Notes
Rfam assigns this 85-nucleotide RNA from Gossypium mustelinum to the family "MIR7486 microRNA precursor family". NCBI's taxonomy places the organism under Eukaryota, Euphyllophyta, rosids, malvids, Gossypium.

RNA sequence: CCUGGGGGAGCGCUUUGUCCACAUCAGCAAAAAAUGCGUCCUUGAGGGCGCGCUUUGCUGAUGUGGACAAAGCGCUCCCCCAGGG
Numbered sequence: 001c002c003u004g005g006g007g008g009a010g011c012g013c014u015u016u017g018u019c020c021a022c023a024u025c026a027g028c029a030a031a032a033a034a035u036g037c038g039u040c041c042u043u044g045a046g047g048g049c050g051c052g053c054u055u056u057g058c059u060g061a062u063g064u065g066g067a068c069a070a071a072g073c074g075c076u077c078c079c080c081c082a083g084g085g
Stems, first nucleotide, its partner, number of pairs: 001084021023062006031056003035052004040047002